[Rfam]
RNA sequence: CUUCAGGCUCCCCAGCCACAGCGGCUCGCCGGCCGGCCGGCCCUGCCCGUAGGUGGCCAGCAGCGCCUGCGCCUC
Numbered sequence: 001c002u003u004c005a006g007g008c009u010c011c012c013c014a015g016c017c018a019c020a021g022c023g024g025c026u027c028g029c030c031g032g033c034c035g036g037c038c039g040g041c042c043c044u045g046c047c048c049g050u051a052g053g054u055g056g057c058c059a060g061c062a063g064c065g066c067c068u069g070c071g072c073c074u075c
Base pairs, nucleotide, nucleotide: 014026015025016024017023032070033069038065039064043060044059045058047056048055049054